[Rfam]
RNA sequence: CCCUCGUCCAACAGAUCGCCAUUCGAAGCUCACAAACAGAGACACUCUCUGAGCGUCUGAAUUCUCUUGCUUUGGGAGAAAGUCCCCGGACACGUCUUCUCCUCACGGAAGGACAUUGCGGAAACGCGCCGCCACAGAAGCACUGCGGCUGACCUCCUGGCCCCGUCCUCAGUCUGUCCUCCUCUGCCCUGCCCCGCCGCUACAUUGGUCAACCUUUCUCUCUUGGAGUCUAGUCAGGUGGCCUUGAGACCUCAUGGACGAUGAUAUGAGUCCGCGCUCUUGGCUGCUUGAUCGGAUCCUCCGUGGGAGGAAGGUCGGCUCGAUGGCGGGGUAGCCGUGGGUGUCGAUGCGUGCUGUGGGCGUCAAGGGGCCGGGAGGGUUUUUCGUCGAGCACGAUAGAUAUGCGAUCGCCUGGCCUCACCAGCUUGGAGUACUCGAUGGGGCUCAUUCUUGGCGCGAGG
Numbered sequence: 001c002c003c004u005c006g007u008c009c010a011a012c013a014g015a016u017c018g019c020c021a022u023u024c025g026a027a028g029c030u031c032a033c034a035a036a037c038a039g040a041g042a043c044a045c046u047c048u049c050u051g052a053g054c055g056u057c058u059g060a061a062u063u064c065u066c067u068u069g070c071u072u073u074g075g076g077a078g079a080a081a082g083u084c085c086c087c088g089g090a091c092a093c094g095u096c097u098u099c100u101c102c103u104c105a106c107g108g109a110a111g112g113a114c115a116u117u118g119c120g121g122a123a124a125c126g127c128g129c130c131g132c133c134a135c136a137g138a139a140g141c142a143c144u145g146c147g148g149c150u151g152a153c154c155u156c157c158u159g160g161c162c163c164c165g166u167c168c169u170c171a172g173u174c175u176g177u178c179c180u181c182c183u184c185u186g187c188c189c190u191g192c193c194c195c196g197c198c199g200c201u202a203c204a205u206u207g208g209u210c211a212a213c214c215u216u217u218c219u220c221u222c223u224u225g226g227a228g229u230c231u232a233g234u235c236a237g238g239u240g241g242c243c244u245u246g247a248g249a250c251c252u253c254a255u256g257g258a259c260g261a262u263g264a265u266a267u268g269a270g271u272c273c274g275c276g277c278u279c280u281u282g283g284c285u286g287c288u289u290g291a292u293c294g295g296a297u298c299c300u301c302c303g304u305g306g307g308a309g310g311a312a313g314g315u316c317g318g319c320u321c322g323a324u325g326g327c328g329g330g331g332u333a334g335c336c337g338u339g340g341g342u343g344u345c346g347a348u349g350c351g352u353g354c355u356g357u358g359g360g361c362g363u364c365a366a367g368g369g370g371c372c373g374g375g376a377g378g379g380u381u382u383u384u385c386g387u388c389g390a391g392c393a394c395g396a397u398a399g400a401u402a403u404g405c406g407a408u409c410g411c412c413u414g415g416c417c418u419c420a421c422c423a424g425c426u427u428g429g430a431g432u433a434c435u436c437g438a439u440g441g442g443g444c445u446c447a448u449u450c451u452u453g454g455c456g457c458g459a460g461g
Stems, first nucleotide, its partner, number of pairs: 002461006008454004014409006023076001024074006040058004045053003081445002084443004117128004212381001214379001218377005229368002239365004348358004411429002414426003
RNA: RNase MRP